[Rfam]
Notes
The family of this 65-nucleotide RNA sequence from Taxus chinensis is "Iron response element I". A reference for the family is Hentze et al. (1987), "Identification of the iron-responsive element for the translational regulation of human ferritin mRNA", Science. Rfam 15.1 lists 6,829 matches to the family in 599 species. Lineage of the source: Eukaryota > Streptophyta > Tracheophyta > Acrogymnospermae > Taxus. Rfam classes the family as a cis-regulatory element.
RNA sequence: GCAUUUUUUUCUUCAACAUUGAUGUUAAUGGCUUGUCAAGAUUGGAAAAGUUUGGAAGAAAAUGC
Numbered sequence: 001g002c003a004u005u006u007u008u009u010u011c012u013u014c015a016a017c018a019u020u021g022a023u024g025u026u027a028a029u030g031g032c033u034u035g036u037c038a039a040g041a042u043u044g045g046a047a048a049a050g051u052u053u054g055g056a057a058g059a060a061a062a063u064g065c
Stems, first nucleotide, its partner, number of pairs: 001065008010057001012056005017050001